[Rfam]
RNA sequence: UGUCGGACCGAUCAACCGACAUGGAAGUGACUGAAUAACCCUGUUGGAAUUAGGCGGGGUAAUGUAGACAGUUAGGGGUGGUGCCCGCUACUUCGGUAGAACUAUUACCAAUAGAACUGUUGUUGUUAUGUACUAAUUUUCGCACUAGCGAUUCCCAUAGCAUGAGGGUAAAAUGUAUUCCCUCCUUCCACCCU
Numbered sequence: 001u002g003u004c005g006g007a008c009c010g011a012u013c014a015a016c017c018g019a020c021a022u023g024g025a026a027g028u029g030a031c032u033g034a035a036u037a038a039c040c041c042u043g044u045u046g047g048a049a050u051u052a053g054g055c056g057g058g059g060u061a062a063u064g065u066a067g068a069c070a071g072u073u074a075g076g077g078g079u080g081g082u083g084c085c086c087g088c089u090a091c092u093u094c095g096g097u098a099g100a101a102c103u104a105u106u107a108c109c110a111a112u113a114g115a116a117c118u119g120u121u122g123u124u125g126u127u128a129u130g131u132a133c134u135a136a137u138u139u140u141c142g143c144a145c146u147a148g149c150g151a152u153u154c155c156c157a158u159a160g161c162a163u164g165a166g167g168g169u170a171a172a173a174u175g176u177a178u179u180c181c182c183u184c185c186u187u188c189c190a191c192c193c194u
Stems, first nucleotide, its partner, number of pairs: 001021006023189005030065002039059006068120006075086003079110004088099004102114003124162007140151003143175002146172001164184005
The record is a 194-nucleotide RNA, which matches "manA RNA" in Rfam. The sequence is in the family's curated seed alignment.